Background: The record is a 72-nucleotide sequence, which matches "Hepatitis C virus stem-loop SL2531 and SL2549AU" in Rfam. For this family Rfam cites "The Coding Region of the HCV Genome Contains a Network of Regulatory RNA Structures" (Pirakitikulr et al., Mol Cell, 2016).
[Rfam]
RNA sequence: UGCUAGCAGACGCCAGGGUCUGCGCUUGCCUGUGGAUGCUCCUCUUGCUCGGCCAGGUUGAAGCAGCAUUGG
Numbered sequence: 001u002g003c004u005a006g007c008a009g010a011c012g013c014c015a016g017g018g019u020c021u022g023c024g025c026u027u028g029c030c031u032g033u034g035g036a037u038g039c040u041c042c043u044c045u046u047g048c049u050c051g052g053c054c055a056g057g058u059u060g061a062a063g064c065a066g067c068a069u070u071g072g
Base pairs, nucleotide, nucleotide: 006023007022008021009020010019011018024067025066027065028064029063031061034058037055038054